Shown here is a 51-nucleotide RNA, a member of the family "DUF3800-XI RNA". Rfam classes the family as a small RNA. Actinobacteria, Firmicutes, Proteobacteria, Spirochaetes (1 example). The base pairs follow the family's consensus structure, which is taken from published work.
RNA sequence: UGGGCUGGUCGUAAGACCCAGGUUCAACCUAAUUAGGCGGGGAGACUCCCC
Dot-bracket structure: ((((((((((....))))..)))))).........................
Numbered sequence: 001u002g003g004g005c006u007g008g009u010c011g012u013a014a015g016a017c018c019c020a021g022g023u024u025c026a027a028c029c030u031a032a033u034u035a036g037g038c039g040g041g042g043a044g045a046c047u048c049c050c051c
Stems, first nucleotide, its partner, number of pairs: 001026006007018004